[Rfam]
RNA sequence: AGUCGGCGUACAGGGCCGGGCACGCGUGCCCAAUCCGGUGCCGAGGGGGAUGAGCCUCGCCAGCAGCGGCCUAUGGCCGGAAAGGCGGAACAUCAAGUGUCGGGCGAUAGGGUUUGGUAGGCCGUAUAAACGGCUCGAAGAAGCCUGGCCCG
Numbered sequence: 001a002g003u004c005g006g007c008g009u010a011c012a013g014g015g016c017c018g019g020g021c022a023c024g025c026g027u028g029c030c031c032a033a034u035c036c037g038g039u040g041c042c043g044a045g046g047g048g049g050a051u052g053a054g055c056c057u058c059g060c061c062a063g064c065a066g067c068g069g070c071c072u073a074u075g076g077c078c079g080g081a082a083a084g085g086c087g088g089a090a091c092a093u094c095a096a097g098u099g100u101c102g103g104g105c106g107a108u109a110g111g112g113u114u115u116g117g118u119a120g121g122c123c124g125u126a127u128a129a130a131c132g133g134c135u136c137g138a139a140g141a142a143g144c145c146u147g148g149c150c151c152g
Base pairs, nucleotide, nucleotide: 003044004043005042006041007040008039011038013036014035015034018031019030020029021028022027046056047055057088058087059086060085061084067079068078069077070076071075101152102151103150104149105148110145111144113142114141115140120135121134122133123132124131
RT-3 RNA: a 152-nucleotide RNA from Paraprevotella clara. Rfam's curators put it in the seed alignment. The family's consensus secondary structure is taken from published work. NCBI's taxonomy places the organism under Bacteria, Bacteroidota, Prevotellaceae, Paraprevotella, Paraprevotella clara. By type it is a small RNA.